Notes
The family of this 102-nucleotide sequence from Populus trichocarpa is "MIR474 microRNA precursor family". The organism belongs to Populus, within Eukaryota.
[Rfam]
RNA sequence: UCCAGCAGCUUUUGAACUUCUUGACUGCCAGACCCAAUGUUAUUGGGUUUGUCUUUGCAGUCAGACCCAAUAUUAUUUUGGGUCUAGUUUAGCUGCUAGACU
Number, nucleotide and partner (000 for none) at each position: 001u100002c099003c000004a097005g096006c095007a094008g093009c092010u000011u000012u087013u086014g085015a000016a083017c082018u081019u080020c000021u000022u075023g074024a073025c000026u000027g000028c000029c000030a050031g049032a048033c047034c046035c045036a044037a043038u042039g000040u000041u000042a038043u037044u036045g035046g034047g033048u032049u031050u030051g000052u000053c000054u069055u000056u000057g066058c000059a000060g000061u000062c000063a000064g000065a000066c057067c000068c000069a054070a000071u000072a000073u024074u023075a022076u000077u000078u000079u000080g019081g018082g017083u016084c000085u014086a013087g012088u000089u000090u000091a000092g009093c008094u007095g006096c005097u004098a000099g002100a001101c000102u000
Notes: A reference for the family is Lu et al. (2005), "Novel and mechanical stress-responsive MicroRNAs in Populus trichocarpa that are absent from Arabidopsis", Plant Cell.